This 138-nucleotide sequence from Kitasatospora kifunensis belongs to the Rfam family "Streptomyces-metK RNA". NCBI's taxonomy places the organism under Bacteria, Bacillati, Actinomycetota, Actinomycetes, Kitasatospora. It is annotated as a small RNA.
RNA sequence: GUGAGACGAAGCGUCCGUAAUUCAUGGAACUAGUGUCGAAGGUCGAUAGCCGACCGUUACACUCCAGGAAUCAAGUCUUUCCGGAUGCCCCGGCCCGGCCGGGAGCGUUCAGUCAGCAGCCGCUGCAACCCCAGGGAG
Numbered sequence: 001g002u003g004a005g006a007c008g009a010a011g012c013g014u015c016c017g018u019a020a021u022u023c024a025u026g027g028a029a030c031u032a033g034u035g036u037c038g039a040a041g042g043u044c045g046a047u048a049g050c051c052g053a054c055c056g057u058u059a060c061a062c063u064c065c066a067g068g069a070a071u072c073a074a075g076u077c078u079u080u081c082c083g084g085a086u087g088c089c090c091c092g093g094c095c096c097g098g099c100c101g102g103g104a105g106c107g108u109u110c111a112g113u114c115a116g117c118a119g120c121c122g123c124u125g126c127a128a129c130c131c132c133a134g135g136g137a138g
Stems, first nucleotide, its partner, number of pairs: 041100005049094004114125004